Shown here is a 75-nucleotide RNA from Alligator sinensis, a member of the family "Mammalian CPEB3 ribozyme". From the family's description: The mammalian CPEB3 ribozyme is a self cleaving RNA located in the second intron of the CPEB3 gene which belongs to a family of genes regulating messenger RNA polyadenylation. It scores 42 bits against the family's covariance model. Rfam links the family to the GO term RNA nuclease activity.

RNA sequence: AUCACAAAUUUGAGGCCAUAGCAGAAGUGUUCAUGGUGCAGCCUAUCAGAUUCCAAUGAAUAUGUGCAUUCUGCU
Numbered sequence: 001a002u003c004a005c006a007a008a009u010u011u012g013a014g015g016c017c018a019u020a021g022c023a024g025a026a027g028u029g030u031u032c033a034u035g036g037u038g039c040a041g042c043c044u045a046u047c048a049g050a051u052u053c054c055a056a057u058g059a060a061u062a063u064g065u066g067c068a069u070u071c072u073g074c075u
Base pairs, nucleotide, nucleotide: 014043015042016041020075021074022073023072024071025070026069027039028038029037047064048063050061051060052059053058